[Rfam]
RNA sequence: UUUGAUCGAGCCGAGCCACAACGGUCGUUCCCUGUGCUGGCCGUAGGUCGCGAGCAACGCCUGCGCCUC
Numbered sequence: 001u002u003u004g005a006u007c008g009a010g011c012c013g014a015g016c017c018a019c020a021a022c023g024g025u026c027g028u029u030c031c032c033u034g035u036g037c038u039g040g041c042c043g044u045a046g047g048u049c050g051c052g053a054g055c056a057a058c059g060c061c062u063g064c065g066c067c068u069c
Base pairs, nucleotide, nucleotide: 015025016024017023031065033063035059036058037054038053041050043048